[Rfam]
RNA sequence: UCUGGAAAGCGGCACCGCGUCAUGCGGGGUCCACCGAAGGGGAAAACGGGGCGGCCACCCUGUAAACUCUCAGGUCCAAUGACAGA
Numbered sequence: 001u002c003u004g005g006a007a008a009g010c011g012g013c014a015c016c017g018c019g020u021c022a023u024g025c026g027g028g029g030u031c032c033a034c035c036g037a038a039g040g041g042g043a044a045a046a047c048g049g050g051g052c053g054g055c056c057a058c059c060c061u062g063u064a065a066a067c068u069c070u071c072a073g074g075u076c077c078a079a080u081g082a083c084a085g086a
Stems, first nucleotide, its partner, number of pairs: 001086004011031003033075003036071002040069003046063005
About this RNA
Shown here is an 86-nucleotide RNA sequence from Loktanella atrilutea, a member of the family "Glycine riboswitch aptamer". Taxonomically the source falls in Loktanella (Bacteria, Pseudomonadati, Rhodobacterales, Roseobacteraceae). The match comes from Rfam's covariance-model search (40 bits).